The family of this 85-nucleotide sequence from Abrus precatorius is "Small nucleolar RNA snoR14". NCBI's taxonomy places the organism under Eukaryota, Viridiplantae, rosids, Abreae, Abrus. The pairing is the family consensus, mapped onto this sequence. The literature on the family includes a 2001 paper in RNA by Brown et al., "Multiple snoRNA gene clusters from Arabidopsis". The family's RNA type in Rfam is C/D-box small nucleolar RNA.
[Rfam]
Nucleotides: 085
Base pairs, nucleotide, nucleotide: 001085002084003083004082
Number, partner (000 for none) and nucleotide at each position: 001085g002084c003083g004082a005000a006000g007000u008000g009000a010000c011000g012000a013000u014000a015000g016000c017000a018000a019000u020000u021000c022000a023000u024000u025000u026000g027000c028000c029000u030000g031000u032000g033000a034000a035000u036000c037000c038000g039000c040000u041000g042000a043000a044000a045000c046000u047000a048000g049000c050000g051000u052000g053000a054000u055000g056000u057000a058000u059000u060000c061000c062000u063000c064000a065000a066000u067000c068000c069000c070000g071000a072000c073000a074000g075000g076000u077000u078000c079000u080000g081000a082004u083003c084002g085001c